[Rfam]
RNA sequence: AAUAGUAGCAAAUACUCAAAUGAGAACUUUAAGAACUGAAGUGGGGAAAGGUUCUAUAUAAACAGCAGUUAGAUAUAGAUUAGUUGAUUCUAAGAUAUAGAAUAGUUCCAUUUGAAAGUACACUCUAGUGCACUAUUUGUCAAAAGAGAAGCUAGUUAAUAUACCAGCAUCUGGAUGUGGAUUCUCCACAGUAACAUAACUGAACACAGAGAUAUCAGCAGAAGUUCUGAAAAGAGUUCUCUUUUCUUCUUGACAGCCUAUCACUCUGAAAUCAGUUUGUCCAGAGCUAGAAUUUCAUGGCCAGCAGAGCUCUGUAUCUUUAUAAGAUCCAGUGCACUCCUGACAACUCUUGAAAAUUCACAGGAAGAAAUAGUUUUCAUGCCAGAUUAUACUUAUAACUACAGCAGAUCUCCAAGAUGAAAAGUCUCUAGUUAA
Numbered sequence: 001a002a003u004a005g006u007a008g009c010a011a012a013u014a015c016u017c018a019a020a021u022g023a024g025a026a027c028u029u030u031a032a033g034a035a036c037u038g039a040a041g042u043g044g045g046g047a048a049a050g051g052u053u054c055u056a057u058a059u060a061a062a063c064a065g066c067a068g069u070u071a072g073a074u075a076u077a078g079a080u081u082a083g084u085u086g087a088u089u090c091u092a093a094g095a096u097a098u099a100g101a102a103u104a105g106u107u108c109c110a111u112u113u114g115a116a117a118g119u120a121c122a123c124u125c126u127a128g129u130g131c132a133c134u135a136u137u138u139g140u141c142a143a144a145a146g147a148g149a150a151g152c153u154a155g156u157u158a159a160u161a162u163a164c165c166a167g168c169a170u171c172u173g174g175a176u177g178u179g180g181a182u183u184c185u186c187c188a189c190a191g192u193a194a195c196a197u198a199a200c201u202g203a204a205c206a207c208a209g210a211g212a213u214a215u216c217a218g219c220a221g222a223a224g225u226u227c228u229g230a231a232a233a234g235a236g237u238u239c240u241c242u243u244u245u246c247u248u249c250u251u252g253a254c255a256g257c258c259u260a261u262c263a264c265u266c267u268g269a270a271a272u273c274a275g276u277u278u279g280u281c282c283a284g285a286g287c288u289a290g291a292a293u294u295u296c297a298u299g300g301c302c303a304g305c306a307g308a309g310c311u312c313u314g315u316a317u318c319u320u321u322a323u324a325a326g327a328u329c330c331a332g333u334g335c336a337c338u339c340c341u342g343a344c345a346a347c348u349c350u351u352g353a354a355a356a357u358u359c360a361c362a363g364g365a366a367g368a369a370a371u372a373g374u375u376u377u378c379a380u381g382c383c384a385g386a387u388u389a390u391a392c393u394u395a396u397a398a399c400u401a402c403a404g405c406a407g408a409u410c411u412c413c414a415a416g417a418u419g420a421a422a423a424g425u426c427u428c429u430a431g432u433u434a435a
Stems, first nucleotide, its partner, number of pairs: 015033002018030003034433004043413004049393002054078006064070001085389003089147002094141002097111002100109001102107001119132001121130001151168003155164001171385004176381005181375001188197001209358002215346001219342003223338003227332003230250001232248004256301003263293001265291004272284001275281001311326001313324004400407001415427004